[Rfam]
RNA sequence: AAAUAAGGAAGUUCGUUUAAAACCGUUCACGUCCUGUGAACAACACCGAACGACCUACAUCCUGUAGG
Dot-bracket structure: ..........(((((.(........(((((.....)))))....).)))))..(((((.....)))))
Rfam assigns this 68-nucleotide RNA sequence from Oceanobacillus iheyensis to the family "Bacillaceae-1 RNA".
The source organism's lineage runs through Bacteria, Bacilli, Bacillaceae, Oceanobacillus and Oceanobacillus iheyensis.
Rfam classes the family as a small RNA.
The base pairs follow the family's consensus structure, which is taken from published work.